[Rfam]
RNA sequence: GGAGGCGGAUUAGCUCUGGUGGGCUCCACGGACUUCAAAUCCGCUGUGGGGGUGGCGGCCCCAUCCCUGGUAGGUUCGAUUCCUACCCGCUCCC
Numbered sequence: 001g002g003a004g005g006c007g008g009a010u011u012a013g014c015u016c017u018g019g020u021g022g023g024c025u026c027c028a029c030g031g032a033c034u035u036c037a038a039a040u041c042c043g044c045u046g047u048g049g050g051g052g053u054g055g056c057g058g059c060c061c062c063a064u065c066c067c068u069g070g071u072a073g074g075u076u077c078g079a080u081u082c083c084u085a086c087c088c089g090c091u092c093c094c
Stems, first nucleotide, its partner, number of pairs: 001094002004091005012025005027046001029043004048068005071085004

Overview:
A member of the RNA family "Selenocysteine transfer RNA" from endosymbiont 'TC1' of Trimyema compressum, 94 nucleotides long. The match comes from Rfam's covariance-model search (66 bits). Pairs were carried over by alignment from the consensus structure, which is taken from published work.